Shown here is a 40-nucleotide sequence, a member of the family "L31-Actinobacteria ribosomal protein leader".
[Rfam]
RNA sequence: UCGGUACCGGUUCACGUCAGCCCCUGACGACCCGGCGACC
Numbered sequence: 001u002c003g004g005u006a007c008c009g010g011u012u013c014a015c016g017u018c019a020g021c022c023c024c025u026g027a028c029g030a031c032c033c034g035g036c037g038a039c040c
Base pairs, nucleotide, nucleotide: 003040004039005038007035008034009033010032015029016028017027018026019025020024

The family's consensus secondary structure is taken from published work. Rfam's curators put it in the seed alignment.